[Rfam]
RNA sequence: UCAUCAUCACCAUUUACCUGAUUAAUCUUUCAGGCAUUUGGCGUUGCUUGGAAGAUAAGUCUUCCGAGUAUGUGCGAAUAAAAAAUUGCAAUUACCCCCUCGGAAGGUCACUUUCGAGGGGUUUUUCUU
Numbered sequence: 001u002c003a004u005c006a007u008c009a010c011c012a013u014u015u016a017c018c019u020g021a022u023u024a025a026u027c028u029u030u031c032a033g034g035c036a037u038u039u040g041g042c043g044u045u046g047c048u049u050g051g052a053a054g055a056u057a058a059g060u061c062u063u064c065c066g067a068g069u070a071u072g073u074g075c076g077a078a079u080a081a082a083a084a085a086u087u088g089c090a091a092u093u094a095c096c097c098c099c100u101c102g103g104a105a106g107g108u109c110a111c112u113u114u115c116g117a118g119g120g121g122u123u124u125u126u127c128u129u
Stems, first nucleotide, its partner, number of pairs: 008046002011040002017034005047068008091126001094123001096121011
Shown here is a 129-nucleotide RNA sequence from Otariodibacter oris, a member of the family "Histidine operon leader".
It is annotated as a cis-regulatory leader.
Gene Ontology term of the family: histidine biosynthetic process.
Taxonomically the source falls in Otariodibacter (Bacteria, Pseudomonadati, Pseudomonadota, Gammaproteobacteria).
Rfam describes the family as follows. At least 6 amino acid operons are known to be regulated by attenuation. In each a leader sequence of 150-200 bp is found upstream of the first gene in the operon.
A reference for the family is Kolter and Yanofsky (1982), "Attenuation in amino acid biosynthetic operons", Annu Rev Genet.